[Rfam]
Shown here is a 156-nucleotide sequence from Paenirhizobium selenitireducens, a member of the family "speF leader". A reference for the family is Corbino et al. (2005), "Evidence for a second class of S-adenosylmethionine riboswitches and other regulatory RNA motifs in alpha-proteobacteria", Genome Biol. Gene Ontology term of the family: regulation of gene expression.
RNA sequence: UUCCGGCUUUCCAUCAGCCGGAGUUACUUCAGAGGCACACCAUCAUUGCCGGAAGUGCGGUCGGGUCAUCCCACCAAUCCAUGGCAGACAAAGCCGAACUGACGCUCCUGGCAGGGUGUCUGUUCACUAUACGCGCUUCGAGCGCUCGUACGGUAU
Number, nucleotide and partner (000 for none) at each position: 001u023002u022003c021004c020005g019006g018007c017008u016009u000010u000011c000012c000013a000014u000015c000016a008017g007018c006019c005020g004021g003022a002023g001024u000025u000026a000027c000028u000029u000030c000031a000032g000033a000034g050035g049036c048037a047038c000039a000040c000041c000042a000043u000044c000045a000046u000047u037048g036049c035050c034051g000052g000053a000054a000055g000056u000057g136058c135059g134060g000061u000062c000063g000064g000065g000066u000067c000068a000069u000070c000071c000072c000073a000074c000075c000076a000077a000078u000079c000080c000081a000082u000083g095084g094085c000086a000087g000088a000089c000090a000091a000092a000093g000094c084095c083096g000097a000098a000099c000100u000101g000102a000103c118104g117105c116106u115107c114108c000109u000110g000111g000112c000113a000114g107115g106116g105117u104118g103119u000120c000121u000122g000123u000124u000125c000126a000127c000128u000129a000130u000131a000132c000133g000134c059135g058136c057137u000138u000139c000140g000141a000142g000143c000144g000145c000146u000147c000148g000149u000150a000151c000152g000153g000154u000155a000156u000